Shown here is a 75-nucleotide sequence from Alligator sinensis, a member of the family "Mammalian CPEB3 ribozyme". Lineage of the source: Eukaryota > Eumetazoa > Deuterostomia > Amniota > Alligator. On this family, see Teixeira et al., Nature 2004: "Autocatalytic RNA cleavage in the human beta-globin pre-mRNA promotes transcription termination". The mammalian CPEB3 ribozyme is a self cleaving RNA located in the second intron of the CPEB3 gene which belongs to a family of genes regulating messenger RNA polyadenylation. This ribozyme is highly conserved and found only in mammals. The CPEB3 ribozyme is structurally and biochemically related to the human hepatitis delta virus (HDV) ribozyme and the HDV ribozyme is proposed to have arisen from the human transcriptome. There is currently only one other known self cleaving ribozyme in mammals, the CoTC motif. It scores 36 bits against the family's covariance model. Its family is annotated with RNA nuclease activity in the Gene Ontology. Pairs were carried over by alignment from the consensus structure, which is taken from published work.
RNA sequence: UCAAGAAUUCAAGGCCAUAGCAGAAGUGCUCACAGCGCGGCCACAUCAGAUUCCAAUGAAUUUAUGAGUUCCACU
Numbered sequence: 001u002c003a004a005g006a007a008u009u010c011a012a013g014g015c016c017a018u019a020g021c022a023g024a025a026g027u028g029c030u031c032a033c034a035g036c037g038c039g040g041c042c043a044c045a046u047c048a049g050a051u052u053c054c055a056a057u058g059a060a061u062u063u064a065u066g067a068g069u070u071c072c073a074c075u
Stems, first nucleotide, its partner, number of pairs: 013042004019075002023071003026038003048063006